[Rfam]
Nucleotides: 106
Base pairs, nucleotide, nucleotide: 006101007100008099009098010097011096012095013094020048021047022046023045050086051085052084053082054081057080058079059078063073064072
Number, partner (000 for none) and nucleotide at each position: 001000c002000c003000a004000c005000g006101c007100g008099c009098g010097g011096c012095g013094g014000g015000a016000g017000a018000g019000u020048c021047c022046g023045g024000a025000a026000c027000c028000g029000c030000c031000c032000g033000c034000g035000g036000a037000g038000g039000a040000c041000g042000g043000g044000a045023c046022c047021g048020g049000c050086g051085c052084c053082g054081a055000a056000g057080g058079a059078g060000c061000a062000a063073c064072u065000c066000c067000u068000c069000c070000c071000c072064g073063g074000g075000a076000a077000u078059c079058u080057c081054u082053c083000a084052g085051g086050c087000c088000c089000c090000a091000g092000a093000a094013c095012c096011g097010c098009c099008g100007c101006g102000a103000g104000c105000a106000g